This 89-nucleotide RNA sequence from Holdemania filiformis belongs to the Rfam family "SAM riboswitch aptamer (S box leader)".
The base pairs follow the family's consensus structure, which is taken from published work.
Lineage of the source: Bacteria > Bacillati > Erysipelotrichia > Erysipelotrichaceae > Holdemania.
The match comes from Rfam's covariance-model search (62 bits).
[Rfam]
RNA sequence: UUUUUAUCAAGAAUGAGGGAGAGAGUCAGCUCGGCGAACUCAUACCAACCUGCUUGAAAGCAAGGUGGUAAUGCUGGCAACGAUAAGAA
Numbered sequence: 001u002u003u004u005u006a007u008c009a010a011g012a013a014u015g016a017g018g019g020a021g022a023g024a025g026u027c028a029g030c031u032c033g034g035c036g037a038a039c040u041c042a043u044a045c046c047a048a049c050c051u052g053c054u055u056g057a058a059a060g061c062a063a064g065g066u067g068g069u070a071a072u073g074c075u076g077g078c079a080a081c082g083a084u085a086a087g088a089a
Base pairs, nucleotide, nucleotide: 001089002088003087004086005085006084007083008082013043014042015041016040017039021032022031023030026077027076028075029074044069045068046067047066049065050064051062052061053060054059073081